Purine riboswitch aptamer: a 99-nucleotide sequence from Cohnella terricola. It scores 48 bits against the family's covariance model. Gene Ontology term of the family: purine nucleobase biosynthetic process.
RNA sequence: CGUCAGGCAAGGCGCCAAGCGCGUAUAUGUCGGGAAUCGGCCCGAACGUCUCUACCCGGAAACCCUAAUUUUCGGACUACGCGGAAGUCACAGGCGGUA
Number, nucleotide and partner (000 for none) at each position: 001c000002g000003u000004c000005a000006g000007g000008c000009a000010a000011g000012g000013c000014g000015c000016c000017a000018a000019g000020c083021g082022c081023g080024u079025a078026u000027a000028u000029g047030u045031c044032g043033g042034g041035a000036a000037u000038c000039g000040g000041c034042c033043c032044g031045a030046a000047c029048g000049u000050c000051u000052c000053u000054a000055c000056c075057c074058g073059g072060a071061a070062a069063c000064c000065c000066u000067a000068a000069u062070u061071u060072u059073c058074g057075g056076a000077c000078u025079a024080c023081g022082c021083g020084g000085a000086a000087g000088u000089c000090a000091c000092a000093g000094g000095c000096g000097g000098u000099a000